RNA sequence: GGUCAUGAGUGCCAGCGUUCAGCCCCGGCUUGCUGGCCGGCAACCCCGGCGUUCGCGGGCGGGGUGCUCCGGGUGAGGACCGGGCUCGGCGCACCGGCGUCGGGCAAGCCGCGAAG
Numbered sequence: 001g002g003u004c005a006u007g008a009g010u011g012c013c014a015g016c017g018u019u020c021a022g023c024c025c026c027g028g029c030u031u032g033c034u035g036g037c038c039g040g041c042a043a044c045c046c047c048g049g050c051g052u053u054c055g056c057g058g059g060c061g062g063g064g065u066g067c068u069c070c071g072g073g074u075g076a077g078g079a080c081c082g083g084g085c086u087c088g089g090c091g092c093a094c095c096g097g098c099g100u101c102g103g104g105c106a107a108g109c110c111g112c113g114a115a116g
Stems, first nucleotide, its partner, number of pairs: 001081004009038001011037006021030002039068003044064003050058001084105009
About this RNA
Shown here is a 116-nucleotide RNA sequence from Kutzneria sp. 744, a member of the family "SAM (S-adenosyl methionine) riboswitch aptamer". Rfam 15.1 lists 2,360 matches to the family in 1,305 species. The organism belongs to Kutzneria, within Bacteria. Its Rfam clan is "SAM clan". About the family: SAM-IV is a mRNA element that regulates gene expression via direct sensing of S-adenosylmethionine (SAM or AdoMet). SAM-IV riboswitches share conserved nucleotide positions with the previously described SAM-I riboswitches sequence analysis and molecular recognition experiments suggest that SAM-I and SAM-IV riboswitches share similar ligand binding sites, but have different scaffolds.